[Rfam]
RNA: Phenylalanine leader peptide
RNA sequence: CAAGCAAUGAAUGCUGCUAUUUUCCGCUUCUUUUUUUACUUUAGCACCUGACUCCAGGAGGCUAGCGCGUGAGAAGAGAAACGGAAAACAGCGCCUGAAAGCCUCCCAGUGGAGGCUUUUUUUGU
Numbered sequence: 001c002a003a004g005c006a007a008u009g010a011a012u013g014c015u016g017c018u019a020u021u022u023u024c025c026g027c028u029u030c031u032u033u034u035u036u037u038a039c040u041u042u043a044g045c046a047c048c049u050g051a052c053u054c055c056a057g058g059a060g061g062c063u064a065g066c067g068c069g070u071g072a073g074a075a076g077a078g079a080a081a082c083g084g085a086a087a088a089c090a091g092c093g094c095c096u097g098a099a100a101g102c103c104u105c106c107c108a109g110u111g112g113a114g115g116c117u118u119u120u121u122u123u124g125u
Stems, first nucleotide, its partner, number of pairs: 016092003021087006028080007036072004047058003061066001098119009